[Rfam]
RNA sequence: GCAGUGUUGUGUGCACAGUUUCCCAUCUGUGUCUGGUGGUAGGGUCUGUGUGUGUUUUGCACGUAGACUGUACCGCUCACACAAAACCUGUGGCCAAAGAUGAACUUGAGAUCAUAGUACUGGUCUAGUGAUGUCUGCAUCUGCAGGACAGCCUCCCACUGACCAGCCUCCAUACUCUCAAACAUCU
Numbered sequence: 001g002c003a004g005u006g007u008u009g010u011g012u013g014c015a016c017a018g019u020u021u022c023c024c025a026u027c028u029g030u031g032u033c034u035g036g037u038g039g040u041a042g043g044g045u046c047u048g049u050g051u052g053u054g055u056u057u058u059g060c061a062c063g064u065a066g067a068c069u070g071u072a073c074c075g076c077u078c079a080c081a082c083a084a085a086a087c088c089u090g091u092g093g094c095c096a097a098a099g100a101u102g103a104a105c106u107u108g109a110g111a112u113c114a115u116a117g118u119a120c121u122g123g124u125c126u127a128g129u130g131a132u133g134u135c136u137g138c139a140u141c142u143g144c145a146g147g148a149c150a151g152c153c154u155c156c157c158a159c160u161g162a163c164c165a166g167c168c169u170c171c172a173u174a175c176u177c178u179c180a181a182a183c184a185u186c187u
Stems, first nucleotide, its partner, number of pairs: 013091003030083003034079003037075005044068005051061003107180005120166006127160004132150005